[Rfam]
RNA: Flavo-1 RNA
Organism: Flavobacterium psychrophilum
RNA sequence: CCCUAGCCCUGAUAGCAACGGAAAUCCUUUUUUGAGGUUUUUACCGAAAAAAAGAUUGUAGUGAAUAGCAGGAAAUAGC
Numbered sequence: 001c002c003c004u005a006g007c008c009c010u011g012a013u014a015g016c017a018a019c020g021g022a023a024a025u026c027c028u029u030u031u032u033u034g035a036g037g038u039u040u041u042u043a044c045c046g047a048a049a050a051a052a053a054g055a056u057u058g059u060a061g062u063g064a065a066u067a068g069c070a071g072g073a074a075a076u077a078g079c
Stems, first nucleotide, its partner, number of pairs: 009071003013067002018062002023057004029052002031047002034044001036042001